[Rfam]
RNA: FMN riboswitch aptamer (RFN element)
Organism: Blautia sp. CAG:257
RNA sequence: GAAAUUCUUCGGGGCAGGGUGACUGUGAUCUGCAUGAUGCAGAAAGCGGAAUUCCCUACCGGCGGUAUAGUCCGCGACCCGCUAUGAGCGGUUGAUCUGGUGACCGGAAGCAUCCGGAAUCCCAGAACCGACAGUAAAGUCUGGAUGAGAGAAGAACACG
Numbered sequence: 001g002a003a004a005u006u007c008u009u010c011g012g013g014g015c016a017g018g019g020u021g022a023c024u025g026u027g028a029u030c031u032g033c034a035u036g037a038u039g040c041a042g043a044a045a046g047c048g049g050a051a052u053u054c055c056c057u058a059c060c061g062g063c064g065g066u067a068u069a070g071u072c073c074g075c076g077a078c079c080c081g082c083u084a085u086g087a088g089c090g091g092u093u094g095a096u097c098u099g100g101u102g103a104c105c106g107g108a109a110g111c112a113u114c115c116g117g118a119a120u121c122c123c124a125g126a127a128c129c130g131a132c133a134g135u136a137a138a139g140u141c142u143g144g145a146u147g148a149g150a151g152a153a154g155a156a157c158a159c160g
Stems, first nucleotide, its partner, number of pairs: 005156006017056003058140002060130002062075004070128002079091002096126005132143003